[Rfam]
A member of the RNA family "ZMP/ZTP riboswitch aptamer (pfl RNA motif)" from Roseburia zhanii, 81 nucleotides long. The organism belongs to Roseburia, within Bacteria.
RNA sequence: AAAUAGUUAUAUGACUGACGGAAAGUGGAGAUUACCACAUGAAGUAUAACUGACACAAUGCCGACCGUCUGGGCGAUAUGC
Number, nucleotide and partner (000 for none) at each position: 001a000002a000003a000004u052005a051006g050007u049008u048009a047010u046011a045012u044013g000014a000015c041016u000017g069018a068019c067020g066021g065022a000023a000024a000025g038026u037027g036028g035029a000030g000031a000032u000033u000034a000035c028036c027037a026038c025039a000040u000041g015042a000043a000044g012045u011046a010047u009048a008049a007050c006051u005052g004053a000054c000055a000056c000057a000058a000059u075060g074061c073062c072063g000064a000065c021066c020067g019068u018069c017070u000071g000072g062073g061074c060075g059076a000077u000078a000079u000080g000081c000